[Rfam]
skipping-rope RNA: an 83-nucleotide RNA sequence. The sequence is in the family's curated seed alignment. By type it is a small RNA.
RNA sequence: AGUAUUUGAGGUAGAAAUUGUGCUACUAUACACCUUGAUACAAGGUUUAAGAGAUGUGGGGAGGGGCACACCCACCAAAUACU
Numbered sequence: 001a002g003u004a005u006u007u008g009a010g011g012u013a014g015a016a017a018u019u020g021u022g023c024u025a026c027u028a029u030a031c032a033c034c035u036u037g038a039u040a041c042a043a044g045g046u047u048u049a050a051g052a053g054a055u056g057u058g059g060g061g062a063g064g065g066g067c068a069c070a071c072c073c074a075c076c077a078a079a080u081a082c083u
Base pairs, nucleotide, nucleotide: 001083002082003081004080005079006078007077008076011029012028013027014026020069021068022067023066024065031051032046033045034044035043036042037041056075057074058073059072060071